[Rfam]
RNA sequence: GGUCGACGGUGCGAGGAAUACAAGACCCGUAAGGGGAAUAACUCCGCCUGAUUCGUACAGGUUUCUAGCCGUCGGCCGCCCUAUA
Number, nucleotide and partner (000 for none) at each position: 001g077002g076003u075004c074005g073006a072007c071008g070009g069010u000011g000012c000013g044014a043015g042016g000017a039018a000019u000020a000021c000022a000023a000024g000025a000026c035027c034028c033029g000030u000031a000032a000033g028034g027035g026036g000037a000038a000039u017040a000041a000042c015043u014044c013045c000046g062047c061048c060049u059050g058051a000052u000053u000054c000055g000056u000057a000058c050059a049060g048061g047062u046063u000064u000065c000066u000067a000068g000069c009070c008071g007072u006073c005074g004075g003076c002077c001078g000079c000080c000081c000082u000083a000084u000085a000

Source information:
This 85-nucleotide RNA from Oligella urethralis belongs to the Rfam family "sRNA-Xcc1". Rfam classes the family as a small RNA. For this family Rfam cites "Genome-wide transcriptome analysis of the plant pathogen Xanthomonas identifies sRNAs with putative virulence functions" (Schmidtke et al., Nucleic Acids Res, 2011). Rfam 15.1 lists 421 matches to the family in 299 species. The match comes from Rfam's covariance-model search (67 bits). Pairs were carried over by alignment from the consensus structure, which was predicted with RNAalifold.